[Rfam]
Bacterial RNase P class A: a 420-nucleotide RNA sequence from Ruminiclostridium hungatei.
RNA sequence: UGAGUAAGCCAGAUGAUCGCAGGUGCAGCCUGAAAAGGCGUACAUGAGGAAAGUCCGGGCUCCACAGGGCAAGGGUGCCGGGUAACUCCCGGUGAAGGUGACUUUAAGGAAAGUGCAACAGAGAUAUACCGCCUGUGGUUUGCAGUUGUGAGAGGCUAUGGAAUGUAGCUGGAUGUGGAGAAAUAUUGACCAUAACCUGUCACAACUGACAAACCAUAUGGUAAGGGUGGAAAGGUGAGGUAAGAGCUCACCAGCGGCAUGGCGACUUGCCGGCUAUGUAAACCCCACCUGGAGCAACGCCGCGGAGGGACGCAAUGACUGCCCGUCAGUCCCGGGGAGGUGGCUUGAGCAUUGCAGAAAUGCAGUGCCUAGAUAGAUGAUCAUUUAAUACAGAACCCGGCUUAUAGACUUACUCAUUUU
Numbered sequence: 001u002g003a004g005u006a007a008g009c010c011a012g013a014u015g016a017u018c019g020c021a022g023g024u025g026c027a028g029c030c031u032g033a034a035a036a037g038g039c040g041u042a043c044a045u046g047a048g049g050a051a052a053g054u055c056c057g058g059g060c061u062c063c064a065c066a067g068g069g070c071a072a073g074g075g076u077g078c079c080g081g082g083u084a085a086c087u088c089c090c091g092g093u094g095a096a097g098g099u100g101a102c103u104u105u106a107a108g109g110a111a112a113g114u115g116c117a118a119c120a121g122a123g124a125u126a127u128a129c130c131g132c133c134u135g136u137g138g139u140u141u142g143c144a145g146u147u148g149u150g151a152g153a154g155g156c157u158a159u160g161g162a163a164u165g166u167a168g169c170u171g172g173a174u175g176u177g178g179a180g181a182a183a184u185a186u187u188g189a190c191c192a193u194a195a196c197c198u199g200u201c202a203c204a205a206c207u208g209a210c211a212a213a214c215c216a217u218a219u220g221g222u223a224a225g226g227g228u229g230g231a232a233a234g235g236u237g238a239g240g241u242a243a244g245a246g247c248u249c250a251c252c253a254g255c256g257g258c259a260u261g262g263c264g265a266c267u268u269g270c271c272g273g274c275u276a277u278g279u280a281a282a283c284c285c286c287a288c289c290u291g292g293a294g295c296a297a298c299g300c301c302g303c304g305g306a307g308g309g310a311c312g313c314a315a316u317g318a319c320u321g322c323c324c325g326u327c328a329g330u331c332c333c334g335g336g337g338a339g340g341u342g343g344c345u346u347g348a349g350c351a352u353u354g355c356a357g358a359a360a361u362g363c364a365g366u367g368c369c370u371a372g373a374u375a376g377a378u379g380a381u382c383a384u385u386u387a388a389u390a391c392a393g394a395a396c397c398c399g400g401c402u403u404a405u406a407g408a409c410u411u412a413c414u415c416a417u418u419u420u
Stems, first nucleotide, its partner, number of pairs: 001416008010407001011405001012385007020046002023043004051403003055400005060294004067324004072290003076287002078092005093107001094105004108285002113283002115279003129226002131222003134218009234252006254274001255272005261266001298342004307333005317327003349368008
It scores 276 bits against the family's covariance model. It is annotated as a ribozyme.